This 103-nucleotide RNA sequence from Carnobacterium sp. 17-4 belongs to the Rfam family "THF (Tetrahydrofolate) riboswitch aptamer". Gene Ontology term of the family: tetrahydrofolate metabolic process. The source organism's lineage runs through Bacteria, Bacilli, Lactobacillales, Carnobacteriaceae and Carnobacterium. Tetrahydrofolate (THF) riboswitch was first reported for Ames et al. as an RNA motif in 5' untranslated (5'-UTR)regions of folate transport and biosynthesis genes in Firmicutes genomes. For this family Rfam cites "A eubacterial riboswitch class that senses the coenzyme tetrahydrofolate" (Ames et al., Chem Biol, 2010).
[Rfam]
Nucleotides: 103
Stems, first nucleotide, its partner, number of pairs: 003101003010091010020080003026056002029054004034050003040097005060077006
Number, partner (000 for none) and nucleotide at each position: 001000a002000u003101c004100a005099g006000a007000g008000u009000a010091g011090g012089a013088g014087a015086c016085a017084a018083a019082g020080c021079g022078u023000u024000a025000a026056g027055u028000g029054u030053c031052g032051u033000a034050g035049g036048g037000a038000u039000g040097g041096g042095a043094u044093g045000u046000u047000g048036c049035c050034c051032a052031c053030g054029g055027a056026c057000g058000a059000a060077a061076a062075a063074u064073u065072g066000u067000g068000u069000a070000g071000a072065c073064a074063a075062u076061u077060u078022g079021c080020g081000g082019u083018u084017u085016u086015g087014u088013u089012u090011c091010u092000g093044c094043a095042u096041u097040c098000g099005c100004u101003g102000c103000a